[Rfam]
RNA sequence: CUGCCCGUAGCUCAACUGGAUAGAGCAGCUGCCUUCUAAGCAGCAGGUCGGGGUUCGAGUCCCUCCGGGCAGG
Numbered sequence: 001c002u003g004c005c006c007g008u009a010g011c012u013c014a015a016c017u018g019g020a021u022a023g024a025g026c027a028g029c030u031g032c033c034u035u036c037u038a039a040g041c042a043g044c045a046g047g048u049c050g051g052g053g054u055u056c057g058a059g060u061c062c063c064u065c066c067g068g069g070c071a072g073g
Base pairs, nucleotide, nucleotide: 001072002071003070004069005068006067007066010026011025012024013023028044029043030042031041032040050064051063052062053061
Dot-bracket structure: (((((((..((((.........)))).(((((.......))))).....((((.......)))).))))))).